[Rfam]
RNA sequence: AAAACGUGUGGCGAUGGAGUCCGCCCAAUAACCGCCUUUAUAGGCUGAUGACUGCUACUGAUCC
Numbered sequence: 001a002a003a004a005c006g007u008g009u010g011g012c013g014a015u016g017g018a019g020u021c022c023g024c025c026c027a028a029u030a031a032c033c034g035c036c037u038u039u040a041u042a043g044g045c046u047g048a049u050g051a052c053u054g055c056u057a058c059u060g061a062u063c064c
Stems, first nucleotide, its partner, number of pairs: 010025004016055001018053004034045004
Rfam assigns this 64-nucleotide sequence from Acidithiobacillus ferrooxidans to the family "Fluoride riboswitch aptamer (crcB RNA motif)". The sequence is in the family's curated seed alignment. The family's consensus secondary structure is taken from published work. On this family, see Baker et al., Science 2012: "Widespread genetic switches and toxicity resistance proteins for fluoride". The family has 289 seed sequences and 2,293 matches in Rfam 15.1.